[Rfam]
RNA sequence: AGUUGGUUAUUUAUGCUACCGAAGACUCAGGUGCCAAUAGGCUUAAUAUCCUGCCGAGGAAGAUACGUUGAAAUCCCUCUCUAUGUCUUGGUGGACAUGGAGUUUUUUAUUUUAUAAG
Numbered sequence: 001a002g003u004u005g006g007u008u009a010u011u012u013a014u015g016c017u018a019c020c021g022a023a024g025a026c027u028c029a030g031g032u033g034c035c036a037a038u039a040g041g042c043u044u045a046a047u048a049u050c051c052u053g054c055c056g057a058g059g060a061a062g063a064u065a066c067g068u069u070g071a072a073a074u075c076c077c078u079c080u081c082u083a084u085g086u087c088u089u090g091g092u093g094g095a096c097a098u099g100g101a102g103u104u105u106u107u108u109a110u111u112u113u114a115u116a117a118g
Base pairs, nucleotide, nucleotide: 028053029052030051031050033042034041035040079102080101081100082099083098084097085096086095087094
Dot-bracket structure: ...........................((((.(((....))).......)))).........................(((((((((......)))))))))................
Overview:
The record is a 118-nucleotide RNA sequence from Latilactobacillus sakei, which matches "Ribosomal protein L10 leader" in Rfam. From the family's description: This family is a putative r-protein leader autoregulatory structure found in B. subtilis and other low-GC Gram-positive bacteria. The base pairs follow the family's consensus structure, which was predicted with CMfinder. It scores 80 bits against the family's covariance model. The organism belongs to Latilactobacillus sakei subsp. sakei, within Bacteria.